JUMPstart RNA: a 37-nucleotide RNA from Gallaecimonas xiamenensis. Rfam 15.1 lists 288 matches to the family in 230 species. The family's consensus secondary structure is taken from published work.

[Rfam]
RNA sequence: CAGCAAUUGGGGGCUGUGACUCAAGGGCGGUAGCGUG
Numbered sequence: 001c002a003g004c005a006a007u008u009g010g011g012g013g014c015u016g017u018g019a020c021u022c023a024a025g026g027g028c029g030g031u032a033g034c035g036u037g
Stems, first nucleotide, its partner, number of pairs: 007024005